[Rfam]
RNA sequence: AAAGUUGCUGCAGUUAAAAAGCUCGUAGUUGGAUCUGGGUCGUGCGAUCACGUGUUGUUUCCUGGUUCAGACUUCGGUCGGUACCGGGUGAUGAUGAAGUGGUCGUGCAGCCUUUCAGCCGUGUCUGCGUAAGCAGGUGUUGGCUGGUCGGUGAGCUUGCUCACUGGUCAGUUGGCAUGUUUCCUGAUGCCUUUAAACGGGUGUCGGGGGCGUACGGCACUUUUACUUUGAACAAAUUUGAGUGCUCAAAGCAGGCUAGUGUGCCUGAAAAGUCUUGCAUGGAAUAAUGGAAUAGGACUUCGGUUCUAUUUUGUUGGUUUUCGGAUCCGAAGUAAUGGUUAAGAGGAACAGACGGGGGCAUUUGUAUGGCGGCGUGAGAGGUGAAAUUCUAUGAUCGUCGCCAGACAAACUACAGCGAAAGCAUUUGCCAAGAAUGUUUUCAUUGAUCAGGAGCGAAAGUCAGAGGUUCGAAGACGAUCAGAUACCGUCCUAGUUCUGACCAUAAACGAUGCCAACUGACGAUCCGCGGCGGUUCUUUAAUUGGCCCCGCGGGCAGUCCCCGGGAAACCCUUAAGUCUUUGGGCUCCGG
Dot-bracket structure: ..........(.(.....(.((((...(((..........................................................................................................................................................................................................................................................................................................................((((((..(...((((..((..((((((((...(((......)))......))))))))..)).......((....))...))))..)..)).))))...)))...))))....((((((....(...((((.........))))...).))))))..........(((.((.(((..(((((((..(((........))).)))))))..)))...((....)).....)).....))))).).
Numbered sequence: 001a002a003a004g005u006u007g008c009u010g011c012a013g014u015u016a017a018a019a020a021g022c023u024c025g026u027a028g029u030u031g032g033a034u035c036u037g038g039g040u041c042g043u044g045c046g047a048u049c050a051c052g053u054g055u056u057g058u059u060u061c062c063u064g065g066u067u068c069a070g071a072c073u074u075c076g077g078u079c080g081g082u083a084c085c086g087g088g089u090g091a092u093g094a095u096g097a098a099g100u101g102g103u104c105g106u107g108c109a110g111c112c113u114u115u116c117a118g119c120c121g122u123g124u125c126u127g128c129g130u131a132a133g134c135a136g137g138u139g140u141u142g143g144c145u146g147g148u149c150g151g152u153g154a155g156c157u158u159g160c161u162c163a164c165u166g167g168u169c170a171g172u173u174g175g176c177a178u179g180u181u182u183c184c185u186g187a188u189g190c191c192u193u194u195a196a197a198c199g200g201g202u203g204u205c206g207g208g209g210g211c212g213u214a215c216g217g218c219a220c221u222u223u224u225a226c227u228u229u230g231a232a233c234a235a236a237u238u239u240g241a242g243u244g245c246u247c248a249a250a251g252c253a254g255g256c257u258a259g260u261g262u263g264c265c266u267g268a269a270a271a272g273u274c275u276u277g278c279a280u281g282g283a284a285u286a287a288u289g290g291a292a293u294a295g296g297a298c299u300u301c302g303g304u305u306c307u308a309u310u311u312u313g314u315u316g317g318u319u320u321u322c323g324g325a326u327c328c329g330a331a332g333u334a335a336u337g338g339u340u341a342a343g344a345g346g347a348a349c350a351g352a353c354g355g356g357g358g359c360a361u362u363u364g365u366a367u368g369g370c371g372g373c374g375u376g377a378g379a380g381g382u383g384a385a386a387u388u389c390u391a392u393g394a395u396c397g398u399c400g401c402c403a404g405a406c407a408a409a410c411u412a413c414a415g416c417g418a419a420a421g422c423a424u425u426u427g428c429c430a431a432g433a434a435u436g437u438u439u440u441c442a443u444u445g446a447u448c449a450g451g452a453g454c455g456a457a458a459g460u461c462a463g464a465g466g467u468u469c470g471a472a473g474a475c476g477a478u479c480a481g482a483u484a485c486c487g488u489c490c491u492a493g494u495u496c497u498g499a500c501c502a503u504a505a506a507c508g509a510u511g512c513c514a515a516c517u518g519a520c521g522a523u524c525c526g527c528g529g530c531g532g533u534u535c536u537u538u539a540a541u542u543g544g545c546c547c548c549g550c551g552g553g554c555a556g557u558c559c560c561c562g563g564g565a566a567a568c569c570c571u572u573a574a575g576u577c578u579u580u581g582g583g584c585u586c587c588g589g
Stems, first nucleotide, its partner, number of pairs: 011588001013586001019585001021454004028447003345441004349436002353432001357429004363407002367403008378389003415422002459500006469493001473489004511584003515576002518558003523553007532545003562569002